[Rfam]
RNA sequence: CUGACAGAGGGGGAGGAAGCCCAAUCCAAAGCGGCGGGGCGACGAACAGGAACUGGAUAUGAGGUGUGACGUAGACGGGGCCAGUGGGCACGUGACCAUGAAGCCCUCCAUCUGCAAUCGGUCUGCGUUUUAUAAAUCCAGCGUCUACGCCGUGACAGUUUCGUGC
Numbered sequence: 001c002u003g004a005c006a007g008a009g010g011g012g013g014a015g016g017a018a019g020c021c022c023a024a025u026c027c028a029a030a031g032c033g034g035c036g037g038g039g040c041g042a043c044g045a046a047c048a049g050g051a052a053c054u055g056g057a058u059a060u061g062a063g064g065u066g067u068g069a070c071g072u073a074g075a076c077g078g079g080g081c082c083a084g085u086g087g088g089c090a091c092g093u094g095a096c097c098a099u100g101a102a103g104c105c106c107u108c109c110a111u112c113u114g115c116a117a118u119c120g121g122u123c124u125g126c127g128u129u130u131u132a133u134a135a136a137u138c139c140a141g142c143g144u145c146u147a148c149g150c151c152g153u154g155a156c157a158g159u160u161u162c163g164u165g166c
Base pairs, nucleotide, nucleotide: 019166020165022163027158031153032152033151034150035149036148037146038145039144040143041142053141054140055139056138057137058136064133065132066131068129069128070127071126072125073124074123078106079105080104081103084099085098086097087096
The record is a 166-nucleotide RNA from Wenzhouxiangella sp. AB-CW3, which matches "Group II catalytic intron D1-D4-3" in Rfam. On this family, see Chu et al., EMBO J 2001: "Control of branch-site choice by a group II intron". Rfam's curators write: Group II introns are found in rRNA, tRNA and mRNA of organelles in fungi, plants and protists, and also in mRNA in bacteria. NCBI's taxonomy places the organism under Bacteria, Pseudomonadati, Gammaproteobacteria, Chromatiales, Wenzhouxiangella. Pairs were carried over by alignment from the consensus structure.